[Rfam]
RNA: MIR8024 microRNA precursor family
RNA sequence: UUAAGGAAUUUGAAGACUUCAACUUGCAGACUAGAAGAAUUUGAGGACCUCAACCUGCAGACUUGGAGGACUUUGAAGACUUUAAUU
Number, nucleotide and partner (000 for none) at each position: 001u085002u084003a083004a082005g081006g080007a000008a000009u077010u076011u075012g074013a073014a072015g000016a000017c068018u067019u066020c065021a064022a000023c000024u000025u059026g058027c057028a056029g000030a000031c000032u053033a000034g051035a050036a000037g048038a000039a000040u000041u000042u000043g000044a000045g000046g000047a000048c037049c000050u035051c034052a000053a032054c000055c000056u028057g027058c026059a025060g000061a000062c000063u000064u021065g020066g019067a018068g017069g000070a000071c000072u014073u013074u012075g011076a010077a009078g000079a000080c006081u005082u004083u003084a002085a001086u000087u000